A member of the RNA family "mir-27 microRNA precursor family" from Atractosteus spatula, 79 nucleotides long. A search with the family's covariance model found it, with a score of 71 bits. Gene Ontology terms of the family: RISC complex and miRNA-mediated post-transcriptional gene silencing. Lineage of the source: Eukaryota > Metazoa > Vertebrata > Holostei > Atractosteus. Pairs were carried over by alignment from the consensus structure, which was predicted with RNAalifold.
RNA sequence: GUGAGGUGCAGGACUUAGCUCGCUUUGUGAACAGAUUUUGAAAAUCCCAUGUUCACAGUGGCUAAGUUCCGCUCUUCUG
Numbered sequence: 001g002u003g004a005g006g007u008g009c010a011g012g013a014c015u016u017a018g019c020u021c022g023c024u025u026u027g028u029g030a031a032c033a034g035a036u037u038u039u040g041a042a043a044a045u046c047c048c049a050u051g052u053u054c055a056c057a058g059u060g061g062c063u064a065a066g067u068u069c070c071g072c073u074c075u076u077c078u079g
Stems, first nucleotide, its partner, number of pairs: 011069010027056007